[Rfam]
RNA sequence: CUGGUGGUAUCCUUAAAGGAACCGCACUGGUUAUAAACUGGCAGCCAUUUCAGGCUCCGCCUGGAUCGGGAAAGACCGGGACGGGAUA
Numbered sequence: 001c002u003g004g005u006g007g008u009a010u011c012c013u014u015a016a017a018g019g020a021a022c023c024g025c026a027c028u029g030g031u032u033a034u035a036a037a038c039u040g041g042c043a044g045c046c047a048u049u050u051c052a053g054g055c056u057c058c059g060c061c062u063g064g065a066u067c068g069g070g071a072a073a074g075a076c077c078g079g080g081a082c083g084g085g086a087u088a
Stems, first nucleotide, its partner, number of pairs: 001029001003027001004025005010020002057084003060080005066075002
The record is an 88-nucleotide RNA sequence from Koleobacter methoxysyntrophicus, which matches "pan motif" in Rfam. Pairs were carried over by alignment from the consensus structure, which is taken from published work. The match comes from Rfam's covariance-model search (44 bits). By type it is a cis-regulatory element. The organism belongs to Koleobacter, within Bacteria.